Shown here is an 85-nucleotide sequence from Melghiribacillus thermohalophilus, a member of the family "c-di-GMP-I riboswitch aptamer". The family's consensus secondary structure is taken from published work.

[Rfam]
RNA sequence: UUCCGAUAAUGGCAAACCUAUCGAAAGGUAGGGACGCAAAACCACGGGCCUAAGGUUCUACGAACUAGGGUAGCCGGCUACCGAA
Numbered sequence: 001u002u003c004c005g006a007u008a009a010u011g012g013c014a015a016a017c018c019u020a021u022c023g024a025a026a027g028g029u030a031g032g033g034a035c036g037c038a039a040a041a042c043c044a045c046g047g048g049c050c051u052a053a054g055g056u057u058c059u060a061c062g063a064a065c066u067a068g069g070g071u072a073g074c075c076g077g078c079u080a081c082c083g084a085a
Stems, first nucleotide, its partner, number of pairs: 012037002017032006040079001042077002046075002048071003055065004